Record summary: HNH endonuclease-associated RNA and ORF (HEARO) RNA: a 210-nucleotide RNA from Ruminococcaceae bacterium BL-6. Taxonomically the source falls in Oscillospiraceae (Bacteria, Bacillati, Clostridia, Eubacteriales). On this family, see Weinberg et al., Nature 2009: "Exceptional structured noncoding RNAs revealed by bacterial metagenome analysis". Pairs were carried over by alignment from the consensus structure, which is taken from published work. The family has 139 seed sequences and 952 matches in Rfam 15.1.
RNA sequence: GUCAACUACCCCACCCUAUAGAGGGUGGAGCUUGUAAAAGCUCAAGUUGACUACCCUAAGUCCUUCGAGGACUACGUUAUAUAGGUCAUAACACCUACGGGCGUUUCUCCUAACUCGUAGCUCUGUUGCUUAACUUUAAACAAUCCUGUGAGGUAGGGAUAGUGAGUUAAGUGUAAAAAGCCUAUAUAACAUUGGGGAAGGAGACAUUAC
Numbered sequence: 001g002u003c004a005a006c007u008a009c010c011c012c013a014c015c016c017u018a019u020a021g022a023g024g025g026u027g028g029a030g031c032u033u034g035u036a037a038a039a040g041c042u043c044a045a046g047u048u049g050a051c052u053a054c055c056c057u058a059a060g061u062c063c064u065u066c067g068a069g070g071a072c073u074a075c076g077u078u079a080u081a082u083a084g085g086u087c088a089u090a091a092c093a094c095c096u097a098c099g100g101g102c103g104u105u106u107c108u109c110c111u112a113a114c115u116c117g118u119a120g121c122u123c124u125g126u127u128g129c130u131u132a133a134c135u136u137u138a139a140a141c142a143a144u145c146c147u148g149u150g151a152g153g154u155a156g157g158g159a160u161a162g163u164g165a166g167u168u169a170a171g172u173g174u175a176a177a178a179a180g181c182c183u184a185u186a187u188a189a190c191a192u193u194g195g196g197g198a199a200g201g202a203g204a205c206a207u208u209a210c
Stems, first nucleotide, its partner, number of pairs: 001051007010030001012027002015024002031040003054196003058192001059073005076190011091126002095120007105204002108201001110200002128172009140163002143160005